RNA: Mason-Pfizer monkey virus packaging signal
Organism: Molossus molossus
RNA sequence: UGGCGCCCAACGUGGGGCUCCAGCAUGGGGGAUCCAGUGAAGGACGCCGUUCGAGUGGCCGGCAGAAAGGAAAGCAAAGAAAAAUAAAAGAAAAGAGGGAACGACGUGGGAACCUGCUGCGUCUGCACCCCUCGGGUAAGUGAACGGCGAUCAUAGGGCAAGAAAUGAGUAAGCAUGAAUUAUUUGUGGAACAGUUAGGUCAUGCAUUAAAGGCACGAGGAGUAAAGGUGAAAGUAAAACAUUUAUGUAAAUAUUUUGAUUAUAUCAAAGAUCUCUGCCCUU
Numbered sequence: 001u002g003g004c005g006c007c008c009a010a011c012g013u014g015g016g017g018c019u020c021c022a023g024c025a026u027g028g029g030g031g032a033u034c035c036a037g038u039g040a041a042g043g044a045c046g047c048c049g050u051u052c053g054a055g056u057g058g059c060c061g062g063c064a065g066a067a068a069g070g071a072a073a074g075c076a077a078a079g080a081a082a083a084a085u086a087a088a089a090g091a092a093a094a095g096a097g098g099g100a101a102c103g104a105c106g107u108g109g110g111a112a113c114c115u116g117c118u119g120c121g122u123c124u125g126c127a128c129c130c131c132u133c134g135g136g137u138a139a140g141u142g143a144a145c146g147g148c149g150a151u152c153a154u155a156g157g158g159c160a161a162g163a164a165a166u167g168a169g170u171a172a173g174c175a176u177g178a179a180u181u182a183u184u185u186g187u188g189g190a191a192c193a194g195u196u197a198g199g200u201c202a203u204g205c206a207u208u209a210a211a212g213g214c215a216c217g218a219g220g221a222g223u224a225a226a227g228g229u230g231a232a233a234g235u236a237a238a239a240c241a242u243u244u245a246u247g248u249a250a251a252u253a254u255u256u257u258g259a260u261u262a263u264a265u266c267a268a269a270g271a272u273c274u275c276u277g278c279c280c281u282u
Stems, first nucleotide, its partner, number of pairs: 006031003012026003037056002095133003098129002105121005141160002145157001166209003169205003216258005222252002226244005267282002270279001272277001